[Rfam]
Nucleotides: 169
Stems, first nucleotide, its partner, number of pairs: 006164006016079007024071001032064002035061005083114005089108001091106004115141002119137007143154004
Number, partner (000 for none) and nucleotide at each position: 001000a002000u003000a004000u005000a006164g007163g008162a009161u010160a011159g012000a013000g014000g015000c016079g017078c018077g019076g020075c021074g022073c023000u024071c025000a026000u027000g028000c029000g030000u031000a032064c033063u034000g035061c036060g037059g038058g039057a040000c041000a042000a043000g044000g045000c046000c047000a048000g049000g050000c051000a052000a053000g054000c055000u056000g057039u058038c059037c060036c061035g062000g063033g064032g065000g066000a067000g068000a069000g070000g071024g072000u073022g074021c075020g076019c077018c078017g079016c080000c081000g082000a083114a084113g085112g086111u087110c088000a089108c090000a091106c092105g093104g094103c095000u096000u097000g098000c099000c100000u101000g102000a103094g104093c105092c106091g107000c108089g109000g110087g111086a112085c113084c114083u115141g116140g117000g118000g119137c120136g121135u122134g123133a124132g125131a126000g127000a128000a129000g130000a131125u132124c133123u134122u135121a136120c137119g138000g139000a140116c141115u142000g143154u144153c145152a146151c147000g148000a149000a150000a151146g152145u153144g154143g155000a156000g157000c158000g159011c160010u161009a162008u163007c164006c165000a166000g167000a168000g169000g
The family of this 169-nucleotide RNA from bacterium 1xD42-67 is "Lysine riboswitch aptamer".